[Rfam]
RNA sequence: GGACGGUGACGAUUUAUAUCUGUGAAAGGUCUCGUUCGUCGUAAUUGGCUGUUAAAGCCUUGACGACCAUACUGAUAUAUCACCACCCAUAUUCCGAGUCC
Numbered sequence: 001g002g003a004c005g006g007u008g009a010c011g012a013u014u015u016a017u018a019u020c021u022g023u024g025a026a027a028g029g030u031c032u033c034g035u036u037c038g039u040c041g042u043a044a045u046u047g048g049c050u051g052u053u054a055a056a057g058c059c060u061u062g063a064c065g066a067c068c069a070u071a072c073u074g075a076u077a078u079a080u081c082a083c084c085a086c087c088c089a090u091a092u093u094c095c096g097a098g099u100c101c
Stems, first nucleotide, its partner, number of pairs: 001101004051061001
The family of this 101-nucleotide RNA sequence from Turnera subulata is "Small nucleolar RNA Z43". By type it is a C/D-box small nucleolar RNA. A reference for the family is Chen et al. (2003), "The high diversity of snoRNAs in plants: identification and comparative study of 120 snoRNA genes from Oryza sativa", Nucleic Acids Res. Lineage of the source: Eukaryota > Streptophytina > Magnoliopsida > rosids > Turnera.